[Rfam]
RNA sequence: GCGCGAACGGUGCCAAUCGGACAUGACGGAGGUGGAGAACGCGGGAGUUUUUCCGAUUUCUUCCCGUGGCCAACGAAACGGCAGCCGAGCUCACCGACCCGUCCGGCUU
Numbered sequence: 001g002c003g004c005g006a007a008c009g010g011u012g013c014c015a016a017u018c019g020g021a022c023a024u025g026a027c028g029g030a031g032g033u034g035g036a037g038a039a040c041g042c043g044g045g046a047g048u049u050u051u052u053c054c055g056a057u058u059u060c061u062u063c064c065c066g067u068g069g070c071c072a073a074c075g076a077a078a079c080g081g082c083a084g085c086c087g088a089g090c091u092c093a094c095c096g097a098c099c100c101g102u103c104c105g106g107c108u109u
Base pairs, nucleotide, nucleotide: 006108008106011023012022014020025103026102027101028100029099034094035092036091037090040068041067042066043065044064045063046062069082070081071080
The record is a 109-nucleotide sequence from Ensifer sp. M14, which matches "Rhizobiales sRNA Atu_At1" in Rfam. The base pairs follow the family's consensus structure, which was predicted with CMfinder. Rfam 15.1 lists 200 matches to the family in 177 species.